[Rfam]
RNA: Nitrogen stress-induced RNA 4
Organism: Fischerella thermalis
RNA sequence: CACAGUAAGCUGAAAAUACCCUCCGAUUGCUUAACCAGACCGCCCUACUCUACUAGUGGCGGUUU
Number, nucleotide and partner (000 for none) at each position: 001c000002a011003c009004a000005g000006u000007a000008a000009g003010c000011u002012g000013a000014a000015a000016a000017u000018a000019c000020c000021c000022u000023c000024c000025g000026a000027u000028u000029g000030c000031u000032u000033a000034a000035c000036c000037a065038g064039a063040c062041c061042g060043c059044c058045c000046u000047a000048c000049u000050c000051u000052a000053c000054u000055a000056g000057u000058g044059g043060c042061g041062g040063u039064u038065u037